Bacterial RNase P class A: a 373-nucleotide RNA sequence from Sphingobacterium zhuxiongii. The base pairs follow the family's consensus structure, which is taken from published work. A search with the family's covariance model found it, with a score of 264 bits.

RNA sequence: AAGCAAACUGGUUCUAUCGCUGCUCUGUGUUUAAACAGAGAAGAGGAAAGUCCGGGCAACAAAGAGCGACACGCUUCCUAACGGGAAGGCUAUUUAAAAUAGACAGCAAGUGCCACAGAGAAUAUACCGCCUUGCAAAAGGUAAGGGUGAAAACGUGAGGUAAGAGCUCACGGUAUUGUAUGGCGACAUGCAUUACGGUAAACCUCGUGUGUUGAAAGACCAAAUAGGUUACGAGUUCGGAAAGCUGCUCGUUUUCUGCCUUCGGGCACUCGUAAUGGGUAGGUUGAUGGAGCUUGUGUGUAAAUGCAAGCCUAGAUAAAUGAUAGAAAUUCAGUAAUGGAUACAGAACCCGGCUUACAAAGUUUGCUUCUUU
Numbered sequence: 001a002a003g004c005a006a007a008c009u010g011g012u013u014c015u016a017u018c019g020c021u022g023c024u025c026u027g028u029g030u031u032u033a034a035a036c037a038g039a040g041a042a043g044a045g046g047a048a049a050g051u052c053c054g055g056g057c058a059a060c061a062a063a064g065a066g067c068g069a070c071a072c073g074c075u076u077c078c079u080a081a082c083g084g085g086a087a088g089g090c091u092a093u094u095u096a097a098a099a100u101a102g103a104c105a106g107c108a109a110g111u112g113c114c115a116c117a118g119a120g121a122a123u124a125u126a127c128c129g130c131c132u133u134g135c136a137a138a139a140g141g142u143a144a145g146g147g148u149g150a151a152a153a154c155g156u157g158a159g160g161u162a163a164g165a166g167c168u169c170a171c172g173g174u175a176u177u178g179u180a181u182g183g184c185g186a187c188a189u190g191c192a193u194u195a196c197g198g199u200a201a202a203c204c205u206c207g208u209g210u211g212u213u214g215a216a217a218g219a220c221c222a223a224a225u226a227g228g229u230u231a232c233g234a235g236u237u238c239g240g241a242a243a244g245c246u247g248c249u250c251g252u253u254u255u256c257u258g259c260c261u262u263c264g265g266g267c268a269c270u271c272g273u274a275a276u277g278g279g280u281a282g283g284u285u286g287a288u289g290g291a292g293c294u295u296g297u298g299u300g301u302a303a304a305u306g307c308a309a310g311c312c313u314a315g316a317u318a319a320a321u322g323a324u325a326g327a328a329a330u331u332c333a334g335u336a337a338u339g340g341a342u343a344c345a346g347a348a349c350c351c352g353g354c355u356u357a358c359a360a361a362g363u364u365u366g367c368u369u370c371u372u373u
Stems, first nucleotide, its partner, number of pairs: 001369009011358001012328007020043002023040006048356003052353005057214004064263002069210005074088005089104001090102004105205002110203002112199003127146002129142005154172006175194001177192006218285004228276006257268004292311008